[Rfam]
RNA sequence: AAUGUUUUUCAGGGCAGGGUGCAAUUCCCUACUGGCGGUACAGUCCGCGACCCUGCGGCGUCAGAAGCUGACGGUGCAGGCUGAUUCGGUGCAAGUCCGAAACCAACAGUACAGUCUGGAUGGAAGAAGAAUGAA
Numbered sequence: 001a002a003u004g005u006u007u008u009u010c011a012g013g014g015c016a017g018g019g020u021g022c023a024a025u026u027c028c029c030u031a032c033u034g035g036c037g038g039u040a041c042a043g044u045c046c047g048c049g050a051c052c053c054u055g056c057g058g059c060g061u062c063a064g065a066a067g068c069u070g071a072c073g074g075u076g077c078a079g080g081c082u083g084a085u086u087c088g089g090u091g092c093a094a095g096u097c098c099g100a101a102a103c104c105a106a107c108a109g110u111a112c113a114g115u116c117u118g119g120a121u122g123g124a125a126g127a128a129g130a131a132u133g134a135a
Base pairs, nucleotide, nucleotide: 003133004132005131006130007129008128009127010126017029018028019027031115032114033105034104035048036047037046038045043103044102052080053079054078055077056076057075085101086100087099088098089097107118108117109116